[Rfam]
RNA sequence: UGACGGAAGGACACCACAAGGAGUGGAGUGUGCGGGUUAAUUUGACUCAACGCGGGACAACUUACCGGGGCAGGCAGUAUUUUGUGAAGGGCAUAGUUAAGGUCUAUGUUCUGAUGAUGCUGCGCGUGGUGCAUGGCCGUUCUUAACACGUGGGGUGACCUGUCUGGUUAAAUCCGAUAACGCGUGAGACCCUGGAUGAUGACGAUGCUCGAUGAGAGUAGGGAAGCUCGGGUCGAUAACAGGUCUGUGAUGCCCGUAGAUGUCCCGGGCGCCACGCGCACUACAGUGGGAGAGGUUACGUGAAACGGAGCUCUCUUGCGGUUGGGAUUGACGUUUGUAAAUAUGUCAUGAACGCGGAAUUCCUAGUAGCGUGCCGUCACUAACGGCAGGCGAAUGAGUCCCUGUUCUUUGUACACACCGCCCGUCGUUAUCUAAGAUGGAUGUGCGGAUGAAGUUGGCUAGGCCAAAAGAAUCCGUGCCACUAGAUUGGAUACAAGUCGUAACAAGGUUGCAGUAGGUGAACCUGCCGCAGGAUCAAUA
Numbered sequence: 001u002g003a004c005g006g007a008a009g010g011a012c013a014c015c016a017c018a019a020g021g022a023g024u025g026g027a028g029u030g031u032g033c034g035g036g037u038u039a040a041u042u043u044g045a046c047u048c049a050a051c052g053c054g055g056g057a058c059a060a061c062u063u064a065c066c067g068g069g070g071c072a073g074g075c076a077g078u079a080u081u082u083u084g085u086g087a088a089g090g091g092c093a094u095a096g097u098u099a100a101g102g103u104c105u106a107u108g109u110u111c112u113g114a115u116g117a118u119g120c121u122g123c124g125c126g127u128g129g130u131g132c133a134u135g136g137c138c139g140u141u142c143u144u145a146a147c148a149c150g151u152g153g154g155g156u157g158a159c160c161u162g163u164c165u166g167g168u169u170a171a172a173u174c175c176g177a178u179a180a181c182g183c184g185u186g187a188g189a190c191c192c193u194g195g196a197u198g199a200u201g202a203c204g205a206u207g208c209u210c211g212a213u214g215a216g217a218g219u220a221g222g223g224a225a226g227c228u229c230g231g232g233u234c235g236a237u238a239a240c241a242g243g244u245c246u247g248u249g250a251u252g253c254c255c256g257u258a259g260a261u262g263u264c265c266c267g268g269g270c271g272c273c274a275c276g277c278g279c280a281c282u283a284c285a286g287u288g289g290g291a292g293a294g295g296u297u298a299c300g301u302g303a304a305a306c307g308g309a310g311c312u313c314u315c316u317u318g319c320g321g322u323u324g325g326g327a328u329u330g331a332c333g334u335u336u337g338u339a340a341a342u343a344u345g346u347c348a349u350g351a352a353c354g355c356g357g358a359a360u361u362c363c364u365a366g367u368a369g370c371g372u373g374c375c376g377u378c379a380c381u382a383a384c385g386g387c388a389g390g391c392g393a394a395u396g397a398g399u400c401c402c403u404g405u406u407c408u409u410u411g412u413a414c415a416c417a418c419c420g421c422c423c424g425u426c427g428u429u430a431u432c433u434a435a436g437a438u439g440g441a442u443g444u445g446c447g448g449a450u451g452a453a454g455u456u457g458g459c460u461a462g463g464c465c466a467a468a469a470g471a472a473u474c475c476g477u478g479c480c481a482c483u484a485g486a487u488u489g490g491a492u493a494c495a496a497g498u499c500g501u502a503a504c505a506a507g508g509u510u511g512c513a514g515u516a517g518g519u520g521a522a523c524c525u526g527c528c529g530c531a532g533g534a535u536c537a538a539u540a
Stems, first nucleotide, its partner, number of pairs: 001415002003412003007409007016399002020363005025284001027282008035273002041056004065268007076121006088112009125256002128254004134250001135248001136244003139240003146185002149182003152161003165176003191232004196200001203223001206220005288319001290317004324353001329348006369391002372388005420504001423500002426497001429493007438484003443479008455467003509532004514527005